[Rfam]
RNA sequence: UGGCACCCAACGUGGGGCUUGGAUACUGAGGCAGCAGUGAGGGAGAUGACGUGAAAAGGAACACGUUCGACACAUCGGAGCCGUGGUGGGAACCUGCCUCAGCAGAAACCGAAAGUAAGUCGAAACAUCCGUUCAUGGGGCAAGAAUUGAGUCAGCAUGAGCUUUAUGUUAAGCAGUUAAAAGAGGCUUUAAAGACACGGGGAGUAAAGGUUAAAAUUACAGAUUUAUUUCAUUUCUUUGAUUUUGUAAAGAACACUUGUCCCU
Numbered sequence: 001u002g003g004c005a006c007c008c009a010a011c012g013u014g015g016g017g018c019u020u021g022g023a024u025a026c027u028g029a030g031g032c033a034g035c036a037g038u039g040a041g042g043g044a045g046a047u048g049a050c051g052u053g054a055a056a057a058g059g060a061a062c063a064c065g066u067u068c069g070a071c072a073c074a075u076c077g078g079a080g081c082c083g084u085g086g087u088g089g090g091a092a093c094c095u096g097c098c099u100c101a102g103c104a105g106a107a108a109c110c111g112a113a114a115g116u117a118a119g120u121c122g123a124a125a126c127a128u129c130c131g132u133u134c135a136u137g138g139g140g141c142a143a144g145a146a147u148u149g150a151g152u153c154a155g156c157a158u159g160a161g162c163u164u165u166a167u168g169u170u171a172a173g174c175a176g177u178u179a180a181a182a183g184a185g186g187c188u189u190u191a192a193a194g195a196c197a198c199g200g201g202g203a204g205u206a207a208a209g210g211u212u213a214a215a216a217u218u219a220c221a222g223a224u225u226u227a228u229u230u231c232a233u234u235u236c237u238u239u240g241a242u243u244u245u246g247u248a249a250a251g252a253a254c255a256c257u258u259g260u261c262c263c264u
Base pairs, nucleotide, nucleotide: 006031007030012026013025014024037047038046072116073115075112076111081105086100088098089097126140128139129138130137131136148191149190150189151187152186153185198240199239200238201237202236203235204234208226209225210224211223212222249264251262253260254259
Dot-bracket structure: .....((....(((.........)))...)).....((.......))........................((.((....(....(.((.......)).)....).....))..)).........(.((((....))))).......((((((...............................))).)))......(((((((...(((((.........))))).......)))))))........(.(.((....)).).)

The record is a 264-nucleotide RNA sequence from Nannospalax galili, which matches "Mason-Pfizer monkey virus packaging signal" in Rfam. NCBI's taxonomy places the organism under Eukaryota, Dipnotetrapodomorpha, Boreoeutheria, Myomorpha, Nannospalax. Rfam classes the family as a cis-regulatory element. It scores 156 bits against the family's covariance model. The family has 9 seed sequences and 2,921 matches in Rfam 15.1.